This 104-nucleotide RNA from Gemmatirosa kalamazoonensis belongs to the Rfam family "TPP riboswitch aptamer (THI element)". Lineage of the source: Bacteria > Gemmatimonadota > Gemmatimonadales > Gemmatimonadaceae > Gemmatirosa. Gene Ontology term of the family: thiamine pyrophosphate binding. It scores 68 bits against the family's covariance model.

RNA sequence: GUAACUCGACCGGGGUGCCCACGCGGAUGGUCCGCGCGGGCUGAGAGAGUCCCGUAGAACCUGAUCCGGUUCGUACCGGCGUAGGGAGUCGCGAGUCGUCGGCG
Numbered sequence: 001g002u003a004a005c006u007c008g009a010c011c012g013g014g015g016u017g018c019c020c021a022c023g024c025g026g027a028u029g030g031u032c033c034g035c036g037c038g039g040g041c042u043g044a045g046a047g048a049g050u051c052c053c054g055u056a057g058a059a060c061c062u063g064a065u066c067c068g069g070u071u072c073g074u075a076c077c078g079g080c081g082u083a084g085g086g087a088g089u090c091g092c093g094a095g096u097c098g099u100c101g102g103c104g
Base pairs, nucleotide, nucleotide: 007091008090009089010088011054012053013052014051016048017041018040019039020038060085061084062083063082066079067078068077069076